[Rfam]
RNA sequence: UCGAAACUCCACCUAUAAAUGGAUAAGAUCCCAGUCUAGCCUAUAGGAGGUUUUGAAAAGAAAGGAGCAAUAAUUAUUUUCUUGUUUUAUCAAGUGGGUGCUAUUGCUCCU
Numbered sequence: 001u002c003g004a005a006a007c008u009c010c011a012c013c014u015a016u017a018a019a020u021g022g023a024u025a026a027g028a029u030c031c032c033a034g035u036c037u038a039g040c041c042u043a044u045a046g047g048a049g050g051u052u053u054u055g056a057a058a059a060g061a062a063a064g065g066a067g068c069a070a071u072a073a074u075u076a077u078u079u080u081c082u083u084g085u086u087u088u089a090u091c092a093a094g095u096g097g098g099u100g101c102u103a104u105u106g107c108u109c110c111u
Stems, first nucleotide, its partner, number of pairs: 008023004063111010076099002079096001081094003
Annotation
The family of this 111-nucleotide RNA sequence from Capsicum baccatum is "Plastid-psbA-1 3UTR RNA". From the family's description: Plastid psbA-1 is a non-coding RNA (ncRNA) present in plastids. It was identified in inverted repeat sequences in the 3 prime untranslate region (3UTR) of photosystem II quinone-binding protein (psbA). Its Rfam clan is "Plastid-psbA 3UTR RNA clan". Rfam classes the family as a cis-regulatory element. The source organism's lineage runs through Eukaryota, Streptophyta, Gunneridae, Pentapetalae and Capsicum. For this family Rfam cites "Retrograde signaling in plants: A critical review focusing on the GUN pathway and beyond" (Richter et al., Plant Commun, 2023).